[Rfam]
RNA sequence: CGGGAGAACUCGCGUUAAGGAACUCGGCAAAAUGCACACGUAACUUCGGGAGAAGUGUGGCCCUUUUUGGAUGUUAAAGUUUGAAGGGGGUUGCAGAGAAAUGGUUCAAGCGACUGUUUACCAAAAACACAGGUCUGUGCGAAUCUGUAAAGAGACGUAUACGGACUGACACCUGCCCGGUGCUGGAAGGUUAAGGGGAGUGGUUAGACCUAGAGUCGAAGCUGCGAACUGAAGCCCCAGUAAACGGCGGCCGUAACUAUAACGGUCCUAAGGUAGCGAAAUUCCUUGUCGGGUAAGUUCCGACCCGCACGAAUGGUGUAACGACUUGAACGCUGUCUCAACGCGAGACCCG
Number, nucleotide and partner (000 for none) at each position: 001c352002g351003g350004g349005a000006g000007a000008a000009c347010u346011c345012g344013c343014g342015u341016u340017a000018a338019g337020g336021a000022a000023c000024u000025c000026g000027g000028c000029a000030a000031a000032a000033u000034g000035c059036a058037c057038a056039c055040g000041u000042a000043a000044c049045u000046u000047c000048g000049g044050g000051a000052g000053a000054a000055g039056u038057g037058u036059g035060g091061c090062c089063c088064u087065u086066u085067u084068u083069g082070g081071a080072u000073g000074u000075u000076a000077a000078a000079g000080u071081u070082u069083g068084a067085a066086g065087g064088g063089g062090g061091u060092u096093g000094c000095a000096g092097a000098g000099a000100a000101a000102u000103g000104g331105u330106u329107c328108a327109a326110g325111c323112g322113a000114c000115u129116g128117u127118u000119u000120a000121c000122c000123a000124a000125a000126a000127a117128c116129a115130c000131a000132g167133g166134u165135c164136u163137g162138u161139g160140c157141g000142a000143a000144u153145c152146u151147g000148u000149a000150a000151a146152g145153a144154g000155a000156c000157g140158u000159a000160u139161a138162c137163g136164g135165a134166c133167u132168g000169a000170c318171a317172c316173c315174u000175g248176c247177c246178c000179g000180g245181u244182g241183c240184u239185g238186g237187a000188a000189g236190g235191u234192u000193a000194a000195g230196g229197g000198g000199a000200g225201u224202g223203g222204u221205u000206a000207g217208a216209c000210c000211u000212a000213g000214a000215g000216u208217c207218g000219a000220a000221g204222c203223u202224g201225c200226g000227a000228a000229c196230u195231g000232a000233a000234g191235c190236c189237c186238c185239a184240g183241u182242a000243a000244a181245c180246g177247g176248c175249g267250g266251c265252c264253g263254u262255a000256a000257c000258u000259a000260u000261a000262a254263c253264g252265g251266u250267c249268c272269u000270a000271a000272g268273g000274u000275a000276g000277c000278g305279a000280a000281a000282u000283u000284c000285c000286u000287u000288g304289u303290c302291g301292g300293g299294u000295a000296a000297g000298u000299u293300c292301c291302g290303a289304c288305c278306c000307g000308c000309a000310c000311g000312a000313a000314u000315g173316g172317u171318g170319u000320a000321a000322c112323g111324a000325c110326u109327u108328g107329a106330a105331c104332g000333c000334u000335g000336u020337c019338u018339c000340a016341a015342c014343g013344c012345g011346a010347g009348a000349c004350c003351c002352g001
The family of this 352-nucleotide part of an RNA from Sediminispirochaeta smaragdinae is "Bacterial large subunit ribosomal RNA". A search with the family's covariance model found it, with a score of 2846 bits. The base pairs follow the family's consensus structure, which is taken from published work.